RNA sequence: AGUGGUGAUAGAGGUGCGAAGAUCAAGAGUAUUCUCUUCUUGAAAGGAUGAGCUUUCCAAAAGAAGAAGUAAGAAAGGGUGAUUCGCCGAAGUAUAUUUGUUCUCAUAAACAAAUGUACUGGUUGUGCAUUUAAUAGAUGUACGACUGUCAAGAUGUUGAUCUUGGAGAGCUAUCUCACGC
Numbered sequence: 001a002g003u004g005g006u007g008a009u010a011g012a013g014g015u016g017c018g019a020a021g022a023u024c025a026a027g028a029g030u031a032u033u034c035u036c037u038u039c040u041u042g043a044a045a046g047g048a049u050g051a052g053c054u055u056u057c058c059a060a061a062a063g064a065a066g067a068a069g070u071a072a073g074a075a076a077g078g079g080u081g082a083u084u085c086g087c088c089g090a091a092g093u094a095u096a097u098u099u100g101u102u103c104u105c106a107u108a109a110a111c112a113a114a115u116g117u118a119c120u121g122g123u124u125g126u127g128c129a130u131u132u133a134a135u136a137g138a139u140g141u142a143c144g145a146c147u148g149u150c151a152a153g154a155u156g157u158u159g160a161u162c163u164u165g166g167a168g169a170g171c172u173a174u175c176u177c178a179c180g181c
Stems, first nucleotide, its partner, number of pairs: 007175005016087005024079001032072002036069006091120012121147011149166007

Lysine riboswitch aptamer: a 181-nucleotide RNA from Bacillus coahuilensis. The base pairs follow the family's consensus structure, which is taken from published work. The match comes from Rfam's covariance-model search (116 bits). Riboswitches are metabolite binding domains within certain messenger RNAs that serve as precision sensors for their corresponding targets. Allosteric rearrangement of mRNA structure is mediated by ligand binding, and this results in modulation of gene expression. This family includes riboswitches that sense lysine in a number of genes involved in lysine metabolism, including lysC.